[Rfam]
RNA sequence: CUAUGAGAGAAGCAUGGUAAUGUGCACAGAGAUUGAAUUAAAAAAGGGUCUGCAUGUCUGCUCCUUCUGAUUCCUUUUCUUGAUUUGGGGGCCUGGUUUUUGACCUAUAUUU
Numbered sequence: 001c002u003a004u005g006a007g008a009g010a011a012g013c014a015u016g017g018u019a020a021u022g023u024g025c026a027c028a029g030a031g032a033u034u035g036a037a038u039u040a041a042a043a044a045a046g047g048g049u050c051u052g053c054a055u056g057u058c059u060g061c062u063c064c065u066u067c068u069g070a071u072u073c074c075u076u077u078u079c080u081u082g083a084u085u086u087g088g089g090g091g092c093c094u095g096g097u098u099u100u101u102g103a104c105c106u107a108u109a110u111u112u
Base pairs, nucleotide, nucleotide: 012025013024014023015022046094047093048092049091050090056084057083058082

Source information:
Small nucleolar RNA snoR100: a 112-nucleotide RNA from Striga asiatica. The match comes from Rfam's covariance-model search (86 bits). It is annotated as an H/ACA-box small nucleolar RNA. The source organism's lineage runs through Eukaryota, Viridiplantae, Streptophyta, lamiids and Striga.